[Rfam]
RNA sequence: UGAGUAUUUAUUGUUAUGCAGUGUUUUCACCAGUUGAAAUUAACUCCUUGUAAAUGUUCUCAAGAAAUAAGAGUAGAUUUCUGUUUAUUCUUUGCAAGUCAAAAGCGUGAAUUGUUUCAGUAACAUUU
Number, nucleotide and partner (000 for none) at each position: 001u000002g059003a058004g057005u056006a055007u054008u053009u052010a051011u050012u000013g000014u000015u000016a000017u000018g000019c000020a045021g044022u043023g000024u000025u039026u038027u037028c036029a000030c000031c000032a000033g000034u000035u000036g028037a027038a026039a025040u000041u000042a000043a022044c021045u020046c000047c000048u000049u000050g011051u010052a009053a008054a007055u006056g005057u004058u003059c002060u000061c000062a000063a000064g000065a000066a000067a000068u000069a000070a000071g000072a000073g000074u122075a121076g000077a000078u000079u000080u000081c000082u000083g000084u000085u000086u000087a000088u000089u000090c105091u104092u103093u102094g000095c000096a000097a000098g000099u000100c000101a000102a093103a092104a091105g090106c000107g000108u000109g000110a000111a000112u000113u000114g000115u000116u000117u000118c000119a000120g000121u075122a074123a000124c000125a000126u000127u000128u000

The record is a 128-nucleotide sequence from Erinaceus europaeus, which matches "Small Cajal body specific RNA 24" in Rfam. A reference for the family is Darzacq et al. (2002), "Cajal body-specific small nuclear RNAs: a novel class of 2'-O-methylation and pseudouridylation guide RNAs", EMBO J. Pairs were carried over by alignment from the consensus structure, which was predicted with RNAfold. It scores 78 bits against the family's covariance model.